[Rfam]
RNA sequence: AAGUGACGCCGGGCCCCUCUGGCGAUGAGUCGCCCUCAUCGUGAUGUCGGAGUCACCAA
Numbered sequence: 001a002a003g004u005g006a007c008g009c010c011g012g013g014c015c016c017c018u019c020u021g022g023c024g025a026u027g028a029g030u031c032g033c034c035c036u037c038a039u040c041g042u043g044a045u046g047u048c049g050g051a052g053u054c055a056c057c058a059a
Stems, first nucleotide, its partner, number of pairs: 006053002009050004022042008
Shown here is a 59-nucleotide RNA from Pseudomonas fulva, a member of the family "terC RNA". Pairs were carried over by alignment from the consensus structure, which is taken from published work. It scores 60 bits against the family's covariance model. Taxonomically the source falls in Pseudomonas fulva (Bacteria, Pseudomonadati, Gammaproteobacteria, Pseudomonas).